Small nucleolar RNA SNORA31: a 136-nucleotide sequence from Oxyruncus cristatus.
The family has 5 seed sequences and 2,094 matches in Rfam 15.1.
For this family Rfam cites "RNomics: an experimental approach that identifies 201 candidates for novel, small, non-messenger RNAs in mouse" (Huttenhofer et al., EMBO J, 2001).
Lineage of the source: Eukaryota > Opisthokonta > Saurischia > Passeriformes > Oxyruncus.
A search with the family's covariance model found it, with a score of 62 bits.
The base pairs follow the family's consensus structure, which was predicted with RNAalifold.
From the family's description: ACA31 (SNORA31) belongs to the H/ACA class of snoRNAs which are thought to guide the sites of modification of uridines to pseudouridines. ACA31 is predicted to guide the pseudouridylation of U3713 in 28S rRNA and U218 in 18S rRNA. This family includes the mouse homologue snoMBI-161.
RNA sequence: AUGCAUCUGUUUGACAGACCUGGAGCAAACGGCCGUUGCUUCUCUGGUUCUUUCUGAGAUGCAACAGUAACAGGUUCCUUGCGCUUUCUGCCUGUCUGACCCUGUGGCAGUUUGGAUUGAAUAAAGGAACACAAAU
Numbered sequence: 001a002u003g004c005a006u007c008u009g010u011u012u013g014a015c016a017g018a019c020c021u022g023g024a025g026c027a028a029a030c031g032g033c034c035g036u037u038g039c040u041u042c043u044c045u046g047g048u049u050c051u052u053u054c055u056g057a058g059a060u061g062c063a064a065c066a067g068u069a070a071c072a073g074g075u076u077c078c079u080u081g082c083g084c085u086u087u088c089u090g091c092c093u094g095u096c097u098g099a100c101c102c103u104g105u106g107g108c109a110g111u112u113u114g115g116a117u118u119g120a121a122u123a124a125a126g127g128a129a130c131a132c133a134a135a136u
Base pairs, nucleotide, nucleotide: 002063003062004061005060006059007058008057013052017049018048019047020046023041024040025039026038027037028036076128077127078126079125080124084119087116088115089114090113092110093109094108095107096106